Rfam assigns this 89-nucleotide sequence from Carnegiea gigantea to the family "mir-156 microRNA precursor family".
RNA sequence: GUGACAGAAGAGAGUGAGCACAGAUGGUUGUUUUCUUGCAUGAAAUUGGCCGUGCUUGAAGCUAUUUGUGCUCACUCUCUGUCUGUCAC
Numbered sequence: 001g002u003g004a005c006a007g008a009a010g011a012g013a014g015u016g017a018g019c020a021c022a023g024a025u026g027g028u029u030g031u032u033u034u035c036u037u038g039c040a041u042g043a044a045a046u047u048g049g050c051c052g053u054g055c056u057u058g059a060a061g062c063u064a065u066u067u068g069u070g071c072u073c074a075c076u077c078u079c080u081g082u083c084u085g086u087c088a089c
Base pairs, nucleotide, nucleotide: 001089002088003087004086005085006084007083008082010079011078012077013076014075015074016073017072018071019070020069021068023066024065025064
Background: A reference for the family is Reinhart et al. (2002), "MicroRNAs in plants", Genes Dev. The family's consensus secondary structure was predicted with PFOLD. Lineage of the source: Eukaryota > eudicotyledons > Gunneridae > Echinocereeae > Carnegiea. Gene Ontology terms of the family: RISC complex and miRNA-mediated post-transcriptional gene silencing. This family represents the plant microRNA (miRNA) precursor mir-156.